Background
Shown here is a 76-nucleotide RNA sequence from Penaeus vannamei, a member of the family "let-7 microRNA precursor family". Rfam describes the family as follows. This family represents the microRNAs (miRNA) let-7 and mir-98. let-7 was identified from a study of developmental timing in C. elegans, and was later shown to be part of a much larger class of non-coding RNAs termed miRNAs. The family has 64 seed sequences and 8,694 matches in Rfam 15.1.

[Rfam]
RNA sequence: UCCGGUGAGGUAGUAGGUUGUAUAGUUUAGCGCUACAUCAUUCCAGGAGAACUGUACAACUUGCUAACUUUCCGGG
Numbered sequence: 001u002c003c004g005g006u007g008a009g010g011u012a013g014u015a016g017g018u019u020g021u022a023u024a025g026u027u028u029a030g031c032g033c034u035a036c037a038u039c040a041u042u043c044c045a046g047g048a049g050a051a052c053u054g055u056a057c058a059a060c061u062u063g064c065u066a067a068c069u070u071u072c073c074g075g076g
Base pairs, nucleotide, nucleotide: 001076002075003074004073005072007070008069009068011066012065013064014063015062016061017060018059019058020057021056022055023054024053025052026051027050028049